This 78-nucleotide RNA sequence from Nasonia vitripennis belongs to the Rfam family "mir-219 microRNA precursor family". The base pairs follow the family's consensus structure, which was predicted with RNAalifold. The literature on the family includes a 2003 paper in Science by Lim et al., "Vertebrate microRNA genes".
[Rfam]
RNA sequence: UCGGGCUAUGAUUGUCCAAACGCAAUUCUUGUCUGUGCCUUGAGAUACCAAGAAUUGUGUGGGGACAUCAGCGCUCGG
Number, nucleotide and partner (000 for none) at each position: 001u000002c077003g076004g075005g074006c073007u000008a000009u070010g069011a068012u067013u000014g066015u065016c064017c063018a000019a000020a000021c059022g058023c057024a056025a055026u054027u053028c052029u051030u050031g049032u000033c000034u000035g000036u000037g000038c000039c000040u000041u000042g000043a000044g000045a000046u000047a000048c000049c031050a030051a029052g028053a027054a026055u025056u024057g023058u022059g021060u000061g000062g000063g017064g016065a015066c014067a012068u011069c010070a009071g000072c000073g006074c005075u004076c003077g002078g000

The organism belongs to Nasonia, within Eukaryota.